[Rfam]
RNA: Small nucleolar RNA Z278
RNA sequence: GCCAAUGAUGAAAUAAUCCAAUUGUAUGAGAUACUGUGGAUCUGAGACCUUGUUUUACAGGGAGAACCACUCAGUGAAGCAGUAUUCAUUUGAUAUUACUGGAUUGAAUUGAGGC
Numbered sequence: 001g002c003c004a005a006u007g008a009u010g011a012a013a014u015a016a017u018c019c020a021a022u023u024g025u026a027u028g029a030g031a032u033a034c035u036g037u038g039g040a041u042c043u044g045a046g047a048c049c050u051u052g053u054u055u056u057a058c059a060g061g062g063a064g065a066a067c068c069a070c071u072c073a074g075u076g077a078a079g080c081a082g083u084a085u086u087c088a089u090u091u092g093a094u095a096u097u098a099c100u101g102g103a104u105u106g107a108a109u110u111g112a113g114g115c
Stems, first nucleotide, its partner, number of pairs: 001115003048062005